[Rfam]
RNA sequence: ACAGUCUGAAAAUCACUUGGGGUCGUCUGUGGCCCCUGGUGUGAUAACUGUGCCAACAGCAGAGGGAGCAUUAAACUCAUUGCCCACGGUAAAGAAUGGGGAGUGAUACCCAGAGGAGGGCCACAAAA
Numbered sequence: 001a002c003a004g005u006c007u008g009a010a011a012a013u014c015a016c017u018u019g020g021g022g023u024c025g026u027c028u029g030u031g032g033c034c035c036c037u038g039g040u041g042u043g044a045u046a047a048c049u050g051u052g053c054c055a056a057c058a059g060c061a062g063a064g065g066g067a068g069c070a071u072u073a074a075a076c077u078c079a080u081u082g083c084c085c086a087c088g089g090u091a092a093a094g095a096a097u098g099g100g101g102a103g104u105g106a107u108a109c110c111c112a113g114a115g116g117a118g119g120g121c122c123a124c125a126a127a128a
Base pairs, nucleotide, nucleotide: 006050008048010045014041015040016039021034022033023032024031066121069115071113072112077106078105079104080103081102085098086097
RNA: Small nucleolar RNA ACA64